SAM riboswitch aptamer (S box leader): a 100-nucleotide sequence from Weizmannia acidilactici. The organism belongs to Heyndrickxia, within Bacteria.

[Rfam]
RNA sequence: CCCUUAUCAAGAGAGGUGGAGGGACUUGGCCCAGUGAAACCUCAGCAACCAGCCAUCCGGCCCGGUGCUAAAUCCAACAGGCAUGCCUGAUAGAUAAGGA
Numbered sequence: 001c002c003c004u005u006a007u008c009a010a011g012a013g014a015g016g017u018g019g020a021g022g023g024a025c026u027u028g029g030c031c032c033a034g035u036g037a038a039a040c041c042u043c044a045g046c047a048a049c050c051a052g053c054c055a056u057c058c059g060g061c062c063c064g065g066u067g068c069u070a071a072a073u074c075c076a077a078c079a080g081g082c083a084u085g086c087c088u089g090a091u092a093g094a095u096a097a098g099g100a
Stems, first nucleotide, its partner, number of pairs: 002099007013043005021032003026077004044069004049065002052061003073092001078089004